[Rfam]
Nucleotides: 176
Base pairs, nucleotide, nucleotide: 007170008169009168010167011166017085018084019083020082021081022080024078025077033070034069035068036067037066038065039064089115090114091113092112093111094110095109096108097107098106100104116142117141119139120138121137122136123135124134125133126132144161145160146159147158148157149156150155
Number, partner (000 for none) and nucleotide at each position: 001000a002000c003000a004000a005000a006000a007170g008169g009168u010167a011166g012000a013000g014000g015000u016000u017085g018084c019083g020082c021081u022080a023000c024078u025077g026000a027000u028000a029000a030000g031000u032000a033070g034069g035068c036067u037066g038065a039064u040000g041000g042000a043000u044000g045000c046000a047000g048000g049000c050000a051000a052000a053000g054000a055000g056000c057000a058000a059000g060000g061000g062000a063000a064039g065038u066037c067036a068035g069034c070033u071000a072000a073000a074000a075000g076000g077025c078024a079000u080022u081021g082020g083019c084018g085017c086000c087000g088000a089115a090114a091113g092112a093111a094110u095109g096108g097107c098106u099000g100104u101000g102000c103000a104100a105000a106098g107097g108096c109095u110094g111093u112092u113091c114090u115089u116142g117141g118000g119139c120138a121137u122136a123135u124134a125133u126132c127000g128000a129000a130000u131000a132126g133125g134124u135123a136122u137121a138120u139119g140000a141117c142116u143000g144161u145160c146159a147158u148157c149156u150155g151000u152000u153000c154000a155150c156149a157148g158147a159146u160145g161144g162000g163000g164000a165000g166011c167010u168009a169008c170007u171000a172000a173000g174000g175000g176000a
A member of the RNA family "Lysine riboswitch aptamer" from Clostridiales bacterium KLE1615, 176 nucleotides long. Lineage of the source: Bacteria > Bacillati > Bacillota > Clostridia > Eubacteriales.